[Rfam]
RNA sequence: UCAGUCUGCCGGUCUGCCGCUCGCCAACAGGCGGGAGGAAAGUCCGGGCAACACAGAGCACCGCACUUCUUAACGGGAAGCUGUCCGCGAGGGUAGAGCAGCGUAACAGAAAAUAACCGCCGGAUAUUUCGGUAAGGGUGAAAAGGCGAGGUAAAAGCUCACCAGGUUUCAUAGCAAUAUGGAAUGUUGUACGUCUUGCGGGUUGUAAGGUCAUGUACACCGGCGUUACAGGGUUGCUCGCCCGAUGCCGGGGGGUAGACCGCUAAAGCUUAUCGGCAACGGUAAGACGAGAUAAAUGGCAGGCACCUUCUCGCGGGAAGGAACAGAACCCGGCUUACAGGCAGACUGUUUUU
Numbered sequence: 001u002c003a004g005u006c007u008g009c010c011g012g013u014c015u016g017c018c019g020c021u022c023g024c025c026a027a028c029a030g031g032c033g034g035g036a037g038g039a040a041a042g043u044c045c046g047g048g049c050a051a052c053a054c055a056g057a058g059c060a061c062c063g064c065a066c067u068u069c070u071u072a073a074c075g076g077g078a079a080g081c082u083g084u085c086c087g088c089g090a091g092g093g094u095a096g097a098g099c100a101g102c103g104u105a106a107c108a109g110a111a112a113a114u115a116a117c118c119g120c121c122g123g124a125u126a127u128u129u130c131g132g133u134a135a136g137g138g139u140g141a142a143a144a145g146g147c148g149a150g151g152u153a154a155a156a157g158c159u160c161a162c163c164a165g166g167u168u169u170c171a172u173a174g175c176a177a178u179a180u181g182g183a184a185u186g187u188u189g190u191a192c193g194u195c196u197u198g199c200g201g202g203u204u205g206u207a208a209g210g211u212c213a214u215g216u217a218c219a220c221c222g223g224c225g226u227u228a229c230a231g232g233g234u235u236g237c238u239c240g241c242c243c244g245a246u247g248c249c250g251g252g253g254g255g256u257a258g259a260c261c262g263c264u265a266a267a268g269c270u271u272a273u274c275g276g277c278a279a280c281g282g283u284a285a286g287a288c289g290a291g292a293u294a295a296a297u298g299g300c301a302g303g304c305a306c307c308u309u310c311u312c313g314c315g316g317g318a319a320g321g322a323a324c325a326g327a328a329c330c331c332g333g334c335u336u337a338c339a340g341g342c343a344g345a346c347u348g349u350u351u352u353u
Stems, first nucleotide, its partner, number of pairs: 002348009011338001012304007020035006040336003044333005049205004056239004061201005066080005081096001083094004097196002101194005117137002119133006145163002148160003165187001166185008209261004220251005231243004269286007
Bacterial RNase P class A: a 353-nucleotide sequence from Bacteroidales bacterium Barb6XT.
It is annotated as a ribozyme.
Rfam's curators write: Ribonuclease P (RNase P) is a ubiquitous endoribonuclease, found in archaea, bacteria and eukarya as well as chloroplasts and mitochondria.
Pairs were carried over by alignment from the consensus structure, which is taken from published work.
The source organism's lineage runs through Bacteria, Pseudomonadati, Bacteroidota, Bacteroidia and Bacteroidales.